[Rfam]
The record is an 80-nucleotide RNA sequence from Paenibacillus lycopersici, which matches "ZMP/ZTP riboswitch aptamer (pfl RNA motif)" in Rfam. Taxonomically the source falls in Paenibacillus (Bacteria, Bacillati, Bacillota, Caryophanales). Its family is annotated with regulation of purine nucleotide biosynthetic process and one-carbon metabolic process in the Gene Ontology.
RNA sequence: AGAGGCGAGUGUGACUGGCGUAACGCGGCGAACCGCGGGGGAGCACUUCGUUCAUACGGCCGUACGCCUGGGCAGAGGUA
Number, nucleotide and partner (000 for none) at each position: 001a000002g000003a052004g051005g000006c000007g048008a047009g046010u045011g044012u043013g000014a000015c040016u039017g068018g067019c066020g065021u064022a000023a000024c000025g036026c035027g034028g033029c000030g000031a000032a000033c028034c027035g026036c025037g000038g000039g016040g015041g000042a000043g012044c011045a010046c009047u008048u007049c000050g000051u004052u003053c000054a000055u000056a000057c075058g000059g073060c072061c071062g000063u000064a021065c020066g019067c018068c017069u000070g000071g061072g060073c059074a000075g057076a000077g000078g000079u000080a000